Guanidine-I riboswitch aptamer: a 131-nucleotide RNA sequence from Oculatella sp. FACHB-28. From the family's description: This family represents a conserved RNA structure found upstream of the ykkC and yxkD genes in Bacillus subtilis and related genes in other bacteria. Lineage of the source: Bacteria > Bacillati > Cyanophyceae > Oculatellaceae > Oculatella.
[Rfam]
RNA sequence: UUAGGUCGCUUCUAGGGUUCCGGUUCAGGUCCUACGAUUUGAGUGUCUGGUCCGAGAGAAGCCAGCUAGCCAUUGCAGCCAUUUAGAUGGAAGGUGAGCUAGCCACACGGCGGGAUAAAAGCCCGGGAGAA
Numbered sequence: 001u002u003a004g005g006u007c008g009c010u011u012c013u014a015g016g017g018u019u020c021c022g023g024u025u026c027a028g029g030u031c032c033u034a035c036g037a038u039u040u041g042a043g044u045g046u047c048u049g050g051u052c053c054g055a056g057a058g059a060a061g062c063c064a065g066c067u068a069g070c071c072a073u074u075g076c077a078g079c080c081a082u083u084u085a086g087a088u089g090g091a092a093g094g095u096g097a098g099c100u101a102g103c104c105a106c107a108c109g110g111c112g113g114g115a116u117a118a119a120a121g122c123c124c125g126g127g128a129g130a131a
Stems, first nucleotide, its partner, number of pairs: 008062005015053002020050002022047001023044008065103006106126001108129001112124003